[Rfam]
RNA sequence: GGGUGCCGGAGGCGAUUCAUUUCCGGUAGGCAAUGAGGUUGGUCGGGCCGCCAGUC
Numbered sequence: 001g002g003g004u005g006c007c008g009g010a011g012g013c014g015a016u017u018c019a020u021u022u023c024c025g026g027u028a029g030g031c032a033a034u035g036a037g038g039u040u041g042g043u044c045g046g047g048c049c050g051c052c053a054g055u056c
Base pairs, nucleotide, nucleotide: 005027006026007025008024009023010022011021012020037056038055039054040053041052042051043050
nhaA-I RNA: a 56-nucleotide RNA sequence from Steroidobacter agaridevorans. Pairs were carried over by alignment from the consensus structure, which is taken from published work. The match comes from Rfam's covariance-model search (44 bits). Rfam describes the family as follows. Acidobacteria, Alphaproteobacteria, Betaproteobacteria and Gammaproteobacteria, Verrucomicrobia, cand. division NC10. Lineage of the source: Bacteria > Pseudomonadota > Gammaproteobacteria > Steroidobacteraceae > Steroidobacter.